Annotation: This 79-nucleotide RNA sequence from Hermetia illucens belongs to the Rfam family "drz-agam-1 ribozyme". Rfam links the family to the GO term catalytic activity. The organism belongs to Hermetia, within Eukaryota. A search with the family's covariance model found it, with a score of 42 bits.
[Rfam]
RNA sequence: UGCUACCAAACCCUAUUUCCACCUCCACGUGGUGAUCGUUGGGAGCUCUUUCUUAAGGAAAAGCUGCAGACGGAGAAGG
Numbered sequence: 001u002g003c004u005a006c007c008a009a010a011c012c013c014u015a016u017u018u019c020c021a022c023c024u025c026c027a028c029g030u031g032g033u034g035a036u037c038g039u040u041g042g043g044a045g046c047u048c049u050u051u052c053u054u055a056a057g058g059a060a061a062a063g064c065u066g067c068a069g070a071c072g073g074a075g076a077a078g079g
Base pairs, nucleotide, nucleotide: 012079013078014077016075017074018073019072021033022032023031044065045064046063047062049060050059051058052057